MIR807 microRNA precursor family: a 175-nucleotide RNA from Oryza meridionalis. Pairs were carried over by alignment from the consensus structure, which was predicted with WAR. Its family is annotated with RISC complex and miRNA-mediated post-transcriptional gene silencing in the Gene Ontology.
RNA sequence: AACCACAAUAUUGAUGAAUGGAUUCACUCGUGAGAUGACGUGGUUGUUCCAUCUAGGAUGAGAACGUGGCAUCCUAUUAAUUUCGUGUGAUGGCUGGUUUAGGAUGCCAUGUCCUCGUCCUAGGUGAAACAACCACGUCAUCUCGCGGGUGAAUCCAUUCAUCGAUAGUGCGGUU
Numbered sequence: 001a002a003c004c005a006c007a008a009u010a011u012u013g014a015u016g017a018a019u020g021g022a023u024u025c026a027c028u029c030g031u032g033a034g035a036u037g038a039c040g041u042g043g044u045u046g047u048u049c050c051a052u053c054u055a056g057g058a059u060g061a062g063a064a065c066g067u068g069g070c071a072u073c074c075u076a077u078u079a080a081u082u083u084c085g086u087g088u089g090a091u092g093g094c095u096g097g098u099u100u101a102g103g104a105u106g107c108c109a110u111g112u113c114c115u116c117g118u119c120c121u122a123g124g125u126g127a128a129a130c131a132a133c134c135a136c137g138u139c140a141u142c143u144c145g146c147g148g149g150u151g152a153a154u155c156c157a158u159u160c161a162u163c164g165a166u167a168g169u170g171c172g173g174u175u
Base pairs, nucleotide, nucleotide: 001175002174003173004172006170007169009167010166011165012164013163014162015161017159018158019157021155022154023153024152025151026150027149028148030146031145032144033143035141036140037139038138039137041135042134043133044132045131046130047129048128051125052124054122055121057119058118064112065111069107070106071105072104073103074102075101076100
The source organism's lineage runs through Eukaryota, Tracheophyta, Euphyllophyta, commelinids and Oryza.